A member of the RNA family "ZMP/ZTP riboswitch aptamer (pfl RNA motif)" from Anaerocolumna jejuensis, 78 nucleotides long. Gene Ontology terms of the family: regulation of purine nucleotide biosynthetic process and one-carbon metabolic process. It scores 52 bits against the family's covariance model.
[Rfam]
RNA sequence: UAUAGAUUAUACGACUGACGGAAGUGGAAUCAACCACAUGAAGUAUAAUAAUAAAAGCCGACCGUCUGGGCGAGAGCC
Dot-bracket structure: .....(((((((..(.[[[[[..((((......))))..)..))))))).......(((..]]]]]..))).......